[Rfam]
The family of this 117-nucleotide RNA from Mandrillus leucophaeus is "U5 spliceosomal RNA". Taxonomically the source falls in Mandrillus (Eukaryota, Dipnotetrapodomorpha, Cercopithecoidea, Cercopithecinae). For this family Rfam cites "The uRNA database" (Zwieb, Nucleic Acids Res, 1997). Pairs were carried over by alignment from the consensus structure, which is taken from published work.
RNA sequence: AUGCUCUGCUUUCUUGUCAGAACAAAUAAAUCUUUCACUUUUUACUAAAGAUUCCCGUGGAGAGGGACAGUUGUGAGUUCGUAACCAAACUUUUUAAGGCCUUACUUAGGCAGGGCU
Numbered sequence: 001a002u003g004c005u006c007u008g009c010u011u012u013c014u015u016g017u018c019a020g021a022a023c024a025a026a027u028a029a030a031u032c033u034u035u036c037a038c039u040u041u042u043u044a045c046u047a048a049a050g051a052u053u054c055c056c057g058u059g060g061a062g063a064g065g066g067a068c069a070g071u072u073g074u075g076a077g078u079u080c081g082u083a084a085c086c087a088a089a090c091u092u093u094u095u096a097a098g099g100c101c102u103u104a105c106u107u108a109g110g111c112a113g114g115g116c117u
Base pairs, nucleotide, nucleotide: 003078004077005076006075010067011066012065013064014063015062017060018059019058029053030052031051032050033049034048035047096117098116100114101113102112